[Rfam]
Nucleotides: 101
Base pairs, nucleotide, nucleotide: 006089007088008087009086010085011052012051013050014049016046017029018028019027020026021025036045037044038043058081059080060079061078062075063074064073065072
Number, partner (000 for none) and nucleotide at each position: 001000a002000c003000u004000a005000a006089u007088u008087u009086g010085c011052g012051g013050g014049g015000g016046g017029a018028c019027u020026a021025c022000u023000u024000g025021g026020u027019a028018g029017u030000u031000g032000a033000g034000a035000a036045g037044g038043u039000u040000a041000a042000a043038a044037c045036c046016u047000g048000a049014c050013c051012c052011u053000u054000u055000g056000a057000a058081c059080c060079u061078g062075u063074c064073g065072g066000u067000u068000a069000a070000u071000a072065c073064c074063g075062g076000c077000g078061u079060a080059g081058g082000g083000a084000a085010g086009c087008g088007a089006a090000u091000c092000a093000u094000u095000a096000c097000a098000u099000c100000u101000a

TPP riboswitch aptamer (THI element): a 101-nucleotide sequence from Paenibacillus tyrphae. The organism belongs to Paenibacillus, within Bacteria.